RNA sequence: GUUUGUAUGUGCGUGGAUGGCGUUCAGCACCAAGGACAGCUGUCUGUACAUGUGUGUAAAAGGUGUUCAGCACCAGAGACAGGCCUAUGUCAUG
Number, nucleotide and partner (000 for none) at each position: 001g000002u000003u000004u000005g084006u083007a000008u081009g080010u079011g000012c000013g000014u000015g000016g000017a000018u075019g074020g073021c000022g071023u070024u069025c000026a067027g066028c065029a064030c063031c062032a000033a000034g055035g000036a053037c052038a051039g000040c000041u048042g047043u000044c000045u000046g000047u042048a041049c000050a000051u038052g037053u036054g000055u034056g000057u000058a000059a000060a000061a000062g031063g030064u029065g028066u027067u026068c000069a024070g023071c022072a000073c020074c019075a018076g000077a000078g000079a010080c009081a008082g000083g006084c005085c000086u000087a000088u000089g000090u000091c000092a000093u000094g000
RNA: mir-2060 microRNA precursor family
Organism: Branchiostoma belcheri